[Rfam]
RNA sequence: CGUAAGCUUUAGGAGUAGCUAGGUAACUAGUUUGAGAAAUAUCCUUAGAACCUGAUAUGGUUAACACCAGCGUAGGAAAAAGUUAGUAUCUUAAA
Numbered sequence: 001c002g003u004a005a006g007c008u009u010u011a012g013g014a015g016u017a018g019c020u021a022g023g024u025a026a027c028u029a030g031u032u033u034g035a036g037a038a039a040u041a042u043c044c045u046u047a048g049a050a051c052c053u054g055a056u057a058u059g060g061u062u063a064a065c066a067c068c069a070g071c072g073u074a075g076g077a078a079a080a081a082g083u084u085a086g087u088a089u090c091u092u093a094a095a
Base pairs, nucleotide, nucleotide: 006083007082008081009080010079011045012044013043014042016039017032018031019030020029021028051076052075053074054073058069059068060067
RNA: TPP riboswitch aptamer (THI element)
Organism: Tenacibaculum aiptasiae